[Rfam]
RNA sequence: UACUGUUAGUGAUGAUUCAAUUAAAACAAUGGGAAUCUCUCUGAAAAAGGCUGAGGAGGACUCUUGCACUGAAACAGUA
Dot-bracket structure: (((((((.................................................................)))))))
Shown here is a 79-nucleotide RNA from Eubucco bourcierii, a member of the family "Small nucleolar RNA SNORD79".
The family is grouped with related families in Rfam's "SNORD74 clan".
A search with the family's covariance model found it, with a score of 78 bits.
About the family: snoRNA U79 or Z22 is found in intron 7 of the gas5 gene in humans and is also present in mice.